A member of the RNA family "ssNA-helicase RNA", 50 nucleotides long. Pairs were carried over by alignment from the consensus structure, which is taken from published work. Rfam classes the family as a small RNA.
RNA sequence: UUGCAGGGGGGGUCAGUAUUACCCCCCUGCAACUUCUGUAUCUUGUAGCA
Numbered sequence: 001u002u003g004c005a006g007g008g009g010g011g012g013u014c015a016g017u018a019u020u021a022c023c024c025c026c027c028u029g030c031a032a033c034u035u036c037u038g039u040a041u042c043u044u045g046u047a048g049c050a
Stems, first nucleotide, its partner, number of pairs: 001032010